Description: The family of this 54-nucleotide RNA sequence is "chrB-b RNA".
[Rfam]
RNA sequence: UCGGGGCAUCGCAGGCCCCCGGCAUCUCAAAGACGGUUCCCGUCCAAGCCCUGC
Numbered sequence: 001u002c003g004g005g006g007c008a009u010c011g012c013a014g015g016c017c018c019c020c021g022g023c024a025u026c027u028c029a030a031a032g033a034c035g036g037u038u039c040c041c042g043u044c045c046a047a048g049c050c051c052u053g054c
Stems, first nucleotide, its partner, number of pairs: 001022006011054005032044005
Dot-bracket structure: ((((((....[[[[[.)))))).........(((((...))))).....]]]]]
The family's consensus secondary structure is taken from published work.